Rfam assigns this 257-nucleotide sequence from Oryzias javanicus to the family "RNase MRP". Its family is annotated with ribonuclease MRP complex, ribonuclease MRP activity and rRNA processing in the Gene Ontology. The match comes from Rfam's covariance-model search (140 bits).

RNA sequence: GGGUAUUCGGAAGGUUUGCUGUCUGGGCUACAUGCGGAGAACAUGGUUUCUCAAAGACCGCCCAGGGAAAAGUCCCCGGACCCGUGGCAGAAAGUGCCCUGGCGUGAGGCCAGAAACGGCUCGUGUCUCCCCGCUAAAGCUAAGAAGCUCGUCUGGAGCAGAGCUCGGGGAAUUGCUUGUCGUCUUUGUCAGGAACAAGAGAAAUGCAGGCGUGCGCGCGCACUGUGUAACAGAACGGGGCUCACUCUCUGAAUACC
Numbered sequence: 001g002g003g004u005a006u007u008c009g010g011a012a013g014g015u016u017u018g019c020u021g022u023c024u025g026g027g028c029u030a031c032a033u034g035c036g037g038a039g040a041a042c043a044u045g046g047u048u049u050c051u052c053a054a055a056g057a058c059c060g061c062c063c064a065g066g067g068a069a070a071a072g073u074c075c076c077c078g079g080a081c082c083c084g085u086g087g088c089a090g091a092a093a094g095u096g097c098c099c100u101g102g103c104g105u106g107a108g109g110c111c112a113g114a115a116a117c118g119g120c121u122c123g124u125g126u127c128u129c130c131c132c133g134c135u136a137a138a139g140c141u142a143a144g145a146a147g148c149u150c151g152u153c154u155g156g157a158g159c160a161g162a163g164c165u166c167g168g169g170g171a172a173u174u175g176c177u178u179g180u181c182g183u184c185u186u187u188g189u190c191a192g193g194a195a196c197a198a199g200a201g202a203a204a205u206g207c208a209g210g211c212g213u214g215c216g217c218g219c220g221c222a223c224u225g226u227g228u229a230a231c232a233g234a235a236c237g238g239g240g241c242u243c244a245c246u247c248u249c250u251g252a253a254u255a256c257c
Stems, first nucleotide, its partner, number of pairs: 002257010014211006022066007037052005071242002074240004086098004099113005116183003122179002125176002128171004138165003147159004213227004